[Rfam]
RNA sequence: CUUCCUCAGGCUUACUCCAGGCUUCUUGCCUGUAGGGUGUCCUGGCAUUGCUUGAGGAUAGAGGAAAAAGCCCAGCUCCCUCCCCAACAAGAUGCUGCUUUCUUGUGGGCCCUACAGAUUGGGCUGACAGA
Numbered sequence: 001c002u003u004c005c006u007c008a009g010g011c012u013u014a015c016u017c018c019a020g021g022c023u024u025c026u027u028g029c030c031u032g033u034a035g036g037g038u039g040u041c042c043u044g045g046c047a048u049u050g051c052u053u054g055a056g057g058a059u060a061g062a063g064g065a066a067a068a069a070g071c072c073c074a075g076c077u078c079c080c081u082c083c084c085c086a087a088c089a090a091g092a093u094g095c096u097g098c099u100u101u102c103u104u105g106u107g108g109g110c111c112c113u114a115c116a117g118a119u120u121g122g123g124c125u126g127a128c129a130g131a
Stems, first nucleotide, its partner, number of pairs: 003058007011050001017045005024037004069125003073121002083109004089104004